[Rfam]
The family of this 92-nucleotide sequence from Halovivax ruber is "S15-Halobacteria ribosomal protein leader".
RNA sequence: UUGGGAAUCGCACGGCCGCAAAUCUGACCCGUCGCGCCUCGCGUCCACCUCGGACGUGAUCUAUCUCGCGCGACUCGAGAUUGCGGAAGUGC
Number, nucleotide and partner (000 for none) at each position: 001u000002u000003g000004g000005g000006a000007a000008u000009c000010g092011c091012a090013c089014g000015g000016c086017c085018g084019c083020a082021a081022a000023u000024c079025u078026g000027a000028c000029c000030c000031g074032u073033c072034g071035c070036g069037c068038c000039u000040c000041g000042c000043g000044u000045c000046c000047a000048c000049c000050u000051c000052g000053g000054a000055c000056g000057u000058g000059a000060u000061c000062u000063a000064u000065c000066u000067c000068g037069c036070g035071c034072g033073a032074c031075u000076c000077g000078a025079g024080a000081u021082u020083g019084c018085g017086g016087a000088a000089g013090u012091g011092c010
On this family, see Eckert and Weinberg, BMC Microbiol 2020: "Discovery of 20 novel ribosomal leader candidates in bacteria and archaea". Its Rfam clan is "Ribosomal Protein S15 Leader clan". Rfam classes the family as a cis-regulatory leader.